Shown here is a 118-nucleotide RNA from Equus caballus, a member of the family "Small nucleolar RNA SNORA25". Gene Ontology terms of the family: RNA processing and nucleolus. The family's RNA type in Rfam is H/ACA-box small nucleolar RNA. From the family's description: ACA25 is a member of the H/ACA class of snoRNA that guide the sites of modification of uridines to pseudouridines. The family has 30 seed sequences and 1,129 matches in Rfam 15.1.
RNA sequence: AGGUCAUUUCGAAGAGGGCUUGUGAACCAGGAGUUCUUAAUGCUGUGAUCAAAGACUGAAGUUCUCUAUUGGUUGUAAUAGUCACUCAAAAGUGCUGUUUUCCUGAGAAGAUAUAAAA
Numbered sequence: 001a002g003g004u005c006a007u008u009u010c011g012a013a014g015a016g017g018g019c020u021u022g023u024g025a026a027c028c029a030g031g032a033g034u035u036c037u038u039a040a041u042g043c044u045g046u047g048a049u050c051a052a053a054g055a056c057u058g059a060a061g062u063u064c065u066c067u068a069u070u071g072g073u074u075g076u077a078a079u080a081g082u083c084a085c086u087c088a089a090a091a092g093u094g095c096u097g098u099u100u101u102c103c104u105g106a107g108a109a110g111a112u113a114u115a116a117a118a
Base pairs, nucleotide, nucleotide: 002050003049004048005047006046007045014038015037016036017035018034019033020032021031023030063111064110065109067107071103072102078098079097080096081095083094084093085092086091